[Rfam]
Shown here is a 102-nucleotide RNA from Brassica rapa, a member of the family "MIR394 microRNA precursor family". Taxonomically the source falls in Brassica (Eukaryota, Tracheophyta, eudicotyledons, rosids). The literature on the family includes a 2006 paper in Genome Res by Lu et al., "MicroRNAs and other small RNAs enriched in the Arabidopsis RNA-dependent RNA polymerase-2 mutant".
RNA sequence: CUUAUAGAUAUCUUUGGCAUUCUGUCCACCUCCUCUACAUAUGUGUAUGGACGAUGUGUUCUGUGAGUGGAGGUGGGCAUACUGCCAAUAGAGAUCUGUUAG
Numbered sequence: 001c002u003u004a005u006a007g008a009u010a011u012c013u014u015u016g017g018c019a020u021u022c023u024g025u026c027c028a029c030c031u032c033c034u035c036u037a038c039a040u041a042u043g044u045g046u047a048u049g050g051a052c053g054a055u056g057u058g059u060u061c062u063g064u065g066a067g068u069g070g071a072g073g074u075g076g077g078c079a080u081a082c083u084g085c086c087a088a089u090a091g092a093g094a095u096c097u098g099u100u101a102g
Stems, first nucleotide, its partner, number of pairs: 011092001014088006023079011
Annotation:
Pairs were carried over by alignment from the consensus structure, which was predicted with WAR. It scores 90 bits against the family's covariance model. Gene Ontology terms of the family: RISC complex and miRNA-mediated post-transcriptional gene silencing.